[Rfam]
Shown here is a 98-nucleotide RNA from Camelus dromedarius, a member of the family "mir-544 microRNA precursor family". The match comes from Rfam's covariance-model search (71 bits). Taxonomically the source falls in Camelus (Eukaryota, Teleostomi, Artiodactyla, Camelidae). Pairs were carried over by alignment from the consensus structure, which was predicted with RNAalifold.
RNA sequence: AUUACCCAGGGAUCUUGUUAAAAUGCACAUUCUGAUUCAGCAGGUCUGGAAUGAACUCUGAGAUUCUGAGUUUGUAGCAAGCUCCCAGGUGAUGCCAA
Numbered sequence: 001a002u003u004a005c006c007c008a009g010g011g012a013u014c015u016u017g018u019u020a021a022a023a024u025g026c027a028c029a030u031u032c033u034g035a036u037u038c039a040g041c042a043g044g045u046c047u048g049g050a051a052u053g054a055a056c057u058c059u060g061a062g063a064u065u066c067u068g069a070g071u072u073u074g075u076a077g078c079a080a081g082c083u084c085c086c087a088g089g090u091g092a093u094g095c096c097a098a
Base pairs, nucleotide, nucleotide: 003091004090005089009085010084011083014081015080016079017078018077019076020075021073022072023071026068027067029065031063032062033061